[Rfam]
RNA sequence: CCAAUCCUACCCGGCCAAGCGUGCUGGCAGCCGGAACCGAGUGUUGCGUGGUGCCGGGGUAACCCGGGCUGCGAAGCGUACACAGGGAACCUGUAGGCCGUGUGAUAGAGCCUCGAAAGUUUUUGUAGCGGAAGCCGACGCCGUUCAACCAGCGGAAGGCAACAUCCUGUUCACUUGUCAGCAAGGGGUGGCAGGGUUCCGCCGGGGUCAAAGAGCA
Numbered sequence: 001c002c003a004a005u006c007c008u009a010c011c012c013g014g015c016c017a018a019g020c021g022u023g024c025u026g027g028c029a030g031c032c033g034g035a036a037c038c039g040a041g042u043g044u045u046g047c048g049u050g051g052u053g054c055c056g057g058g059g060u061a062a063c064c065c066g067g068g069c070u071g072c073g074a075a076g077c078g079u080a081c082a083c084a085g086g087g088a089a090c091c092u093g094u095a096g097g098c099c100g101u102g103u104g105a106u107a108g109a110g111c112c113u114c115g116a117a118a119g120u121u122u123u124u125g126u127a128g129c130g131g132a133a134g135c136c137g138a139c140g141c142c143g144u145u146c147a148a149c150c151a152g153c154g155g156a157a158g159g160c161a162a163c164a165u166c167c168u169g170u171u172c173a174c175u176u177g178u179c180a181g182c183a184a185g186g187g188g189u190g191g192c193a194g195g196g197u198u199c200c201g202c203c204g205g206g207g208u209c210a211a212a213g214a215g216c217a
Base pairs, nucleotide, nucleotide: 012033013032014031015030019028020027022184023182024181037086038085041083042082043081044080045078046077047073048072049071050070051069054067055066056065057064058063108209110208111207112206113205114204115203128202129201130200131199132198133197134160135159136158139154140153141152165196166195167194168193169192170191172190173189174187175186176185
RNA: Group II catalytic intron D1-D4-6